[Rfam]
RNA sequence: CGUAGAUGAAGAGAGAUAAAUCAGCUACCGCUGAGCCCAACGUGAGGAAGAAACCGCCUUUCGUCUGACC
Numbered sequence: 001c002g003u004a005g006a007u008g009a010a011g012a013g014a015g016a017u018a019a020a021u022c023a024g025c026u027a028c029c030g031c032u033g034a035g036c037c038c039a040a041c042g043u044g045a046g047g048a049a050g051a052a053a054c055c056g057c058c059u060u061u062c063g064u065c066u067g068a069c070c
Base pairs, nucleotide, nucleotide: 004066005065006064007063008062009061010060011059013057015055017053021045022044023043024041026039030036031035
Shown here is a 70-nucleotide RNA sequence from Giardia duodenalis, a member of the family "Giardia snoRNA GlsR8". By type it is a C/D-box small nucleolar RNA. Rfam's curators put it in the seed alignment. On this family, see Li et al., Cell Microbiol 2012: "The profile of snoRNA-derived microRNAs that regulate expression of variant surface proteins in Giardia lamblia". NCBI's taxonomy places the organism under Eukaryota, Fornicata, Diplomonadida, Hexamitidae, Giardia duodenalis. The base pairs follow the family's consensus structure.